The family of this 103-nucleotide RNA from Paenibacillus silvestris is "Guanidine-I riboswitch aptamer". NCBI's taxonomy places the organism under Bacteria, Bacillati, Bacillota, Paenibacillaceae, Paenibacillus. It scores 83 bits against the family's covariance model. Gene Ontology term of the family: regulation of gene expression.
RNA sequence: CAUCAUGUUUCUAGGGUUCCGCGGCGCUGCAGCGCUGGUCUGGUCCGAGAGAAAACACACAGCGGAUACGCUGUGAUCACGGAGGGGAAAAAGCCCGGGAGUC
Dot-bracket structure: ......(((((..((...(((((((((....))))))..).)).))....)))).).(((((((....)))))))..(.[...(((.......))).)..]..